[Rfam]
RNA sequence: GGCCCAAUUUUGAAGUACAGUGGAACAGUAGGAUCAGCUGACCUCACUAAUCUACCUUACUUCAGAUUUGGGCCC
Numbered sequence: 001g002g003c004c005c006a007a008u009u010u011u012g013a014a015g016u017a018c019a020g021u022g023g024a025a026c027a028g029u030a031g032g033a034u035c036a037g038c039u040g041a042c043c044u045c046a047c048u049a050a051u052c053u054a055c056c057u058u059a060c061u062u063c064a065g066a067u068u069u070g071g072g073c074c075c
Base pairs, nucleotide, nucleotide: 001074002073003072004071005070006069007068009066011064012063013062014061015060016059017058020055021054022053023052027048028047029046032043034041035040
RNA: mir-5928 microRNA precursor family
Organism: Haemonchus placei